[Rfam]
RNA: Bacterial RNase P class A
Organism: Blastomonas sp. AAP25
Nucleotides: 404
Stems, first nucleotide, its partner, number of pairs: 001400010011389001012353007020039002023036005044387003048384005053218004062285001064283001066214005071085005086100001087098004101209002106207002108203002123148001125144003131140003156174006175198001176196005181190003222310004232301006277292005317336004322331003
Number, partner (000 for none) and nucleotide at each position: 001400c002399c003398a004397g005396a006395g007394g008393g009392u010391c011389g012353g013352g014351c015350a016349g017348c018347c019000g020039c021038g022000g023036g024035u025034u026033a027032c028000g029000c030000a031000a032027g033026u034025g035024a036023c037000g038021c039020g040000a041000g042000g043000a044387a045386a046385g047000u048384c049383c050382g051381g052380g053218c054217u055216c056215c057000a058000c059000g060000a061000a062285a063000c064283a065000a066214g067213g068212a069211u070210g071085c072084c073083g074082g075081g076000u077000a078000a079000c080000g081075c082074c083073c084072g085071g086100c087098g088097g089096g090095g091000g092000c093000g094000a095090c096089c097088c098087c099000a100086g101209g102208g103000a104000c105000a106207g107206u108203g109202c110000a111000a112000c113000a114000g115000a116000a117000a118000g119000c120000a121000g122000g123148u124000u125144g126143c127142c128000c129000a130000a131140g132139g133138c134000u135000u136000c137000g138133g139132c140131c141000c142127g143126g144125u145000a146000a147000c148123a149000u150000u151000g152000a153000a154000a155000g156174g157173g158172u159171g160170c161169g162000g163000u164000a165000a166000g167000a168000g169161c170160g171159c172158a173157c174156c175198g176196c177195g178194c179193g180192g181190c182189c183188a184000g185000c186000a187000a188183u189182g190181g191000u192180u193179c194178g195177c196176g197000g198175c199000a200000c201000g202109g203108u204000a205000a206107a207106c208102c209101c210070c211069a212068u213067c214066c215056g216055g217054a218053g219000c220000a221000a222310g223309a224308c225307c226000g227000a228000a229000u230000a231000g232301g233300g234299g235298c236297g237296g238000a239000u240000u241000u242000g243000g244000u245000g246000a247000u248000a249000c250000g251000g252000u253000u254000u255000c256000u257000g258000c259000u260000u261000g262000c263000a264000g265000a266000g267000g268000c269000g270000c271000g272000u273000c274000c275000c276000a277292g278291g279290g280289g281288u282000g283064u284000u285062u286000c287000g288281g289280c290279c291278c292277c293000u294000u295000g296237c297236c298235g299234c300233c301232c302000g303000g304000g305000u306000u307225g308224g309223u310222u311000g312000c313000u314000u315000g316000a317336g318335c319334g320333g321000u322331g323330c324329a325000g326000c327000a328000a329324u330323g331322c332000c333320c334319c335318g336317c337000c338000u339000a340000g341000a342000g343000g344000a345000a346000u347018g348017g349016c350015u351014g352013c353012c354000c355000a356000u357000g358000a359000c360000c361000g362000g363000c364000a365000a366000c367000g368000g369000u370000c371000a372000g373000g374000a375000c376000a377000g378000a379000a380052c381051c382050c383049g384048g385046c386045u387044u388000a389011c390000a391010g392009a393008c394007c395006c396005u397004c398003u399002g400001g401000c402000a403000a404000u